RNA sequence: GGGGAACAUCCAAAAGUUGAGAUGUUUCCUGAUACGAUCUUCCUACAGAGAAUCUCUGCAUUUUUCCUACUUGUAGCAUUUGAGCAAGUUCUUCAAGUCUCAAAUUGCAGGGACAUGA
Numbered sequence: 001g002g003g004g005a006a007c008a009u010c011c012a013a014a015a016g017u018u019g020a021g022a023u024g025u026u027u028c029c030u031g032a033u034a035c036g037a038u039c040u041u042c043c044u045a046c047a048g049a050g051a052a053u054c055u056c057u058g059c060a061u062u063u064u065u066c067c068u069a070c071u072u073g074u075a076g077c078a079u080u081u082g083a084g085c086a087a088g089u090u091c092u093u094c095a096a097g098u099c100u101c102a103a104a105u106u107g108c109a110g111g112g113a114c115a116u117g118a
Stems, first nucleotide, its partner, number of pairs: 001030003005026006055111003069098005075092002078089003
RNA: Small nucleolar RNA snoR104
Organism: Trema andersonii